[Rfam]
RNA sequence: UCGGCCCCGGUUCACGACGCGCAGCCCGCGCGUCGACCCGGUGUCC
Numbered sequence: 001u002c003g004g005c006c007c008c009g010g011u012u013c014a015c016g017a018c019g020c021g022c023a024g025c026c027c028g029c030g031c032g033u034c035g036a037c038c039c040g041g042u043g044u045c046c
Stems, first nucleotide, its partner, number of pairs: 003046002007041004015035008
The family of this 46-nucleotide RNA sequence from Streptomyces marincola is "L31-Actinobacteria ribosomal protein leader". Clan: Ribosomal Protein L31 Leader clan. It scores 49 bits against the family's covariance model. For this family Rfam cites "Discovery of 20 novel ribosomal leader candidates in bacteria and archaea" (Eckert and Weinberg, BMC Microbiol, 2020). Lineage of the source: Bacteria > Bacillati > Kitasatosporales > Streptomycetaceae > Streptomyces.